[Rfam]
RNA sequence: GGCGGUGUAGCUCAGCUGGCUAGAGCGUGCGGUUCAUACCCGCAAGGUCGAGGGUUCAAGUCCCCCCGCCGCUA
Dot-bracket structure: (((((((..((((.........)))).(((((.......))))).....(.(((.......))).)))))))).
Shown here is a 74-nucleotide RNA from Acholeplasma laidlawii, a member of the family "tRNA".
About the family: Transfer RNA (tRNA) molecules are approximately 80 nucleotides in length.
The family's RNA type in Rfam is transfer RNA.